Shown here is a 147-nucleotide RNA from Devosia soli, a member of the family "FMN riboswitch aptamer (RFN element)".
[Rfam]
RNA sequence: CGCUGUUCUCAGGGCGGGGUGAAACUCCCCACCGGCGGUAAGGCGGCAACGCCAAGCCCGCGAGCGCUUCCAGCUUGAGUUGGAAGGUCAGCAGAUCCGGUGUGAUUCCGGAGCCGACGGUUAUAGUCCGGAUGAAAGAGAAAGAGU
Dot-bracket structure: ...(.(((((......(((.......))).[[((((((.................[[))))..((.........................))...(((((.......)))))]])).(((.....]]))).......))))).)...

NCBI's taxonomy places the organism under Bacteria, Alphaproteobacteria, Hyphomicrobiales, Devosiaceae, Devosia.